[Rfam]
RNA: U4 spliceosomal RNA
Organism: Microcebus murinus
RNA sequence: GGCUUUGUCCGAUGGCAGUUUCACAGCCAGCGAGGUUUCUCUGAGGCGAGAUUGUUGCUAAUUAAAAGUGUUGGCCAAUAUCCUGGUGUGAUGACUCCCAACGUAGUCAGCACUGGCAAUUUUUUCCCGUCUCUAUGGAGA
Numbered sequence: 001g002g003c004u005u006u007g008u009c010c011g012a013u014g015g016c017a018g019u020u021u022c023a024c025a026g027c028c029a030g031c032g033a034g035g036u037u038u039c040u041c042u043g044a045g046g047c048g049a050g051a052u053u054g055u056u057g058c059u060a061a062u063u064a065a066a067a068g069u070g071u072u073g074g075c076c077a078a079u080a081u082c083c084u085g086g087u088g089u090g091a092u093g094a095c096u097c098c099c100a101a102c103g104u105a106g107u108c109a110g111c112a113c114u115g116g117c118a119a120u121u122u123u124u125u126c127c128c129g130u131c132u133c134u135a136u137g138g139a140g141a
Stems, first nucleotide, its partner, number of pairs: 021051002024048001026047003034042002085117001087115001088113003092109005130141004